A member of the RNA family "Guanidine-I riboswitch aptamer" from Lentibacillus amyloliquefaciens, 96 nucleotides long. Pairs were carried over by alignment from the consensus structure. The source organism's lineage runs through Bacteria, Bacillota, Bacilli, Bacillaceae and Lentibacillus. Rfam describes the family as follows. This family represents a conserved RNA structure found upstream of the ykkC and yxkD genes in Bacillus subtilis and related genes in other bacteria.
[Rfam]
RNA sequence: UAAAAUGUUUUCUAGGGUUCCGCAAGCAUGUUAUUGGUCUGGUCCGAGAGAAAACUCACGCAAGACGUGUCACGGAAGGAUAAAAGCCUGGGAGAU
Numbered sequence: 001u002a003a004a005a006u007g008u009u010u011u012c013u014a015g016g017g018u019u020c021c022g023c024a025a026g027c028a029u030g031u032u033a034u035u036g037g038u039c040u041g042g043u044c045c046g047a048g049a050g051a052a053a054a055c056u057c058a059c060g061c062a063a064g065a066c067g068u069g070u071c072a073c074g075g076a077a078g079g080a081u082a083a084a085a086g087c088c089u090g091g092g093a094g095a096u
Base pairs, nucleotide, nucleotide: 007055008054009053010052011051012050015045016044020042021041022039023036024035025034057069058068059067060066071091073094077089078088079087